[Rfam]
RNA sequence: CAAAAGGCUCUUUUCAGAGCCACCUAUUACUUCCAAGAAGGCUGUG
Numbered sequence: 001c002a003a004a005a006g007g008c009u010c011u012u013u014u015c016a017g018a019g020c021c022a023c024c025u026a027u028u029a030c031u032u033c034c035a036a037g038a039a040g041g042c043u044g045u046g
Base pairs, nucleotide, nucleotide: 006021007020008019009018010017011016
Record summary
This 46-nucleotide RNA from Carlito syrichta belongs to the Rfam family "Histone 3' UTR stem-loop". A search with the family's covariance model found it, with a score of 40 bits. The mRNAs of metazoan histone genes lack a poly-A tail. 3' end processing occurs at a site between a highly conserved stem-loop (modelled by this family) and a purine rich region around 20 nts downstream (the histone downstream element, or HDE). The stem-loop is bound by a 31 kDa stem-loop binding protein (SLBP - also termed the histone hairpin binding protein, or HBP). Together with U7 snRNA binding of the HDE, SLBP binding nucleate s the formation of the processing complex. The histone 3' UTR stem-loop is also involved in nucleocytoplasmic transport of the mRNA, and in stability regulation and translation efficiency in the cytoplasm.